[Rfam]
RNA sequence: UCAAUGGGUCGCUAGGGUUCCGGUUCGCAGCGCGAAUGGCUGGUCCGAGAGCAACCGACCUCUCUCCGGAGGGGUUACACGGCGGGACAAAAGCCCGGGAGGU
Numbered sequence: 001u002c003a004a005u006g007g008g009u010c011g012c013u014a015g016g017g018u019u020c021c022g023g024u025u026c027g028c029a030g031c032g033c034g035a036a037u038g039g040c041u042g043g044u045c046c047g048a049g050a051g052c053a054a055c056c057g058a059c060c061u062c063u064c065u066c067c068g069g070a071g072g073g074g075u076u077a078c079a080c081g082g083c084g085g086g087a088c089a090a091a092a093g094c095c096c097g098g099g100a101g102g103u
Stems, first nucleotide, its partner, number of pairs: 007056003011052002015046002020043002022040001023037006057076008078098001080101001084096003

A member of the RNA family "Guanidine-I riboswitch aptamer" from Aquisalimonas asiatica, 103 nucleotides long.
Taxonomically the source falls in Aquisalimonas (Bacteria, Pseudomonadota, Gammaproteobacteria, Chromatiales).
A reference for the family is Barrick et al. (2004), "New RNA motifs suggest an expanded scope for riboswitches in bacterial genetic control", Proc Natl Acad Sci U S A.
About the family: This family represents a conserved RNA structure found upstream of the ykkC and yxkD genes in Bacillus subtilis and related genes in other bacteria.